[Rfam]
RNA: Glycine riboswitch aptamer
RNA sequence: UGCCGCCCGUCAGGAGAGCGUCCCGGUGCAGUUGGGGGCCGCCGAAGGCGCAGGGUUUCACGAUCCGAACGCUCAGGCAGAAGGACUGACACACGUCU
Numbered sequence: 001u002g003c004c005g006c007c008c009g010u011c012a013g014g015a016g017a018g019c020g021u022c023c024c025g026g027u028g029c030a031g032u033u034g035g036g037g038g039c040c041g042c043c044g045a046a047g048g049c050g051c052a053g054g055g056u057u058u059c060a061c062g063a064u065c066c067g068a069a070c071g072c073u074c075a076g077g078c079a080g081a082a083g084g085a086c087u088g089a090c091a092c093a094c095g096u097c098u
Base pairs, nucleotide, nucleotide: 009090010089011088012087013086020039021038022037023036041078042077043076044074045073048072049071050070054066055065
Dot-bracket structure: ........(((((......((((............)))).(((((..(((...((.........))...))))).))).......)))))........